Shown here is a 154-nucleotide RNA sequence from Muricoccus roseus, a member of the family "FMN riboswitch aptamer (RFN element)". About the family: The RFN element is a highly conserved domain that is found frequently in the 5'-untranslated regions of prokaryotic mRNAs that encode for flavin mononucleotide (FMN) biosynthesis and transport proteins. This element is a metabolite-dependent riboswitch that directly binds FMN in the absence of proteins. In Bacillus subtilis, the riboswitch most likely controls gene expression by causing premature transcription termination within the 5' untranslated region of the ribDEAHT operon and precluding access to the ribosome-binding site of ypaA mRNA.The FMN riboswitch structure, reported in present an FMN-bound six-stem junction, adopts a butterfly-like scaffold, stapled together by opposingly directed but nearly identically folded peripheral domains. The source organism's lineage runs through Bacteria, Pseudomonadati, Pseudomonadota, Roseomonadaceae and Muricoccus.
[Rfam]
RNA sequence: AUGCGUUCUCAGGGCAGGGUGAAAAUCCCCACCGGUGGUAUUUGCGAGCAAUCGCAUGAGCCCGCGAGCGCUCGCUCUCCUUAUGAGAGCGAGGUCAGCAGAUCCGGUGUGAAUCCGGAGCCGACGGUCACAGUCCGGAUGGAAGAGAGCGCGA
Numbered sequence: 001a002u003g004c005g006u007u008c009u010c011a012g013g014g015c016a017g018g019g020u021g022a023a024a025a026u027c028c029c030c031a032c033c034g035g036u037g038g039u040a041u042u043u044g045c046g047a048g049c050a051a052u053c054g055c056a057u058g059a060g061c062c063c064g065c066g067a068g069c070g071c072u073c074g075c076u077c078u079c080c081u082u083a084u085g086a087g088a089g090c091g092a093g094g095u096c097a098g099c100a101g102a103u104c105c106g107g108u109g110u111g112a113a114u115c116c117g118g119a120g121c122c123g124a125c126g127g128u129c130a131c132a133g134u135c136c137g138g139a140u141g142g143a144a145g146a147g148a149g150c151g152c153g154a
Stems, first nucleotide, its partner, number of pairs: 003152008017029003031134002033123002035065004060121002068099002103119005125137003